[Rfam]
RNA: xerDC RNA
RNA sequence: GAUCCGCAGCCGGACGGAUCACUUGACACAGGCAAACCGUGACGCUCUGUCACGGCUUGCAGCCGAGUUCAGCGGUUGUGUCAGCAGUCGCUCUUUGGAGCAGAGGACUUUACCUCCGUACUGCAUUCGUACUGACC
Numbered sequence: 001g002a003u004c005c006g007c008a009g010c011c012g013g014a015c016g017g018a019u020c021a022c023u024u025g026a027c028a029c030a031g032g033c034a035a036a037c038c039g040u041g042a043c044g045c046u047c048u049g050u051c052a053c054g055g056c057u058u059g060c061a062g063c064c065g066a067g068u069u070c071a072g073c074g075g076u077u078g079u080g081u082c083a084g085c086a087g088u089c090g091c092u093c094u095u096u097g098g099a100g101c102a103g104a105g106g107a108c109u110u111u112a113c114c115u116c117c118g119u120a121c122u123g124c125a126u127u128c129g130u131a132c133u134g135a136c137c
Stems, first nucleotide, its partner, number of pairs: 001020006024083006031077001032060004062076004084124005090101004103116001105114002